[Rfam]
RNA sequence: AGCGGAUGCCCUUCUGCGCGGACGAUUUGGGCCUUAGACAAGCCACAUCGUUCCUGCUCAGAGGGGCAUUCGUGCUUUCCGACGCGCAGUCACACGCCUAUCCGACGGUGGAUCGAG
Dot-bracket structure: .((((((((((((.((..((((((((.(..((.........)).).)))).))).)..)))).))))))))))........................(.(((((....))))).)..
Description: Shown here is a 117-nucleotide RNA sequence from Geodermatophilus marinus, a member of the family "Actinobacteria sRNA Ms_IGR-7". The family has 14 seed sequences and 463 matches in Rfam 15.1. By type it is a small RNA. The source organism's lineage runs through Bacteria, Bacillati, Geodermatophilales, Geodermatophilaceae and Geodermatophilus. A reference for the family is Li et al. (2013), "Identification of small RNAs in Mycobacterium smegmatis using heterologous Hfq", RNA.